This 87-nucleotide RNA sequence from Alkaliphilus serpentinus belongs to the Rfam family "c-di-GMP-I riboswitch aptamer".
It scores 77 bits against the family's covariance model.
Nucleotides: 087
Stems, first nucleotide, its partner, number of pairs: 012037002017032006040081004045077003048072003055066003
Number, partner (000 for none) and nucleotide at each position: 001000u002000a003000a004000a005000g006000a007000u008000a009000c010000u011000a012037g013036c014000a015000a016000a017032c018031u019030u020029u021028u022027c023000a024000a025000a026000a027022g028021a029020a030019a031018g032017g033000g034000a035000c036013g037012c038000a039000a040081a041080g042079c043078u044000a045077u046076g047075g048072g049071u050070c051000u052000a053000a054000g055066g056065g057064a058000c059000a060000g061000a062000a063000a064057u065056c066055c067000u068000a069000u070050g071049a072048u073000u074000g075047c076046c077045a078043g079042g080041u081040u082000g083000c084000c085000u086000a087000a
Source information:
Its family is annotated with cyclic-di-GMP binding in the Gene Ontology. Lineage of the source: Bacteria > Bacillati > Bacillota > Peptostreptococcales > Alkaliphilus.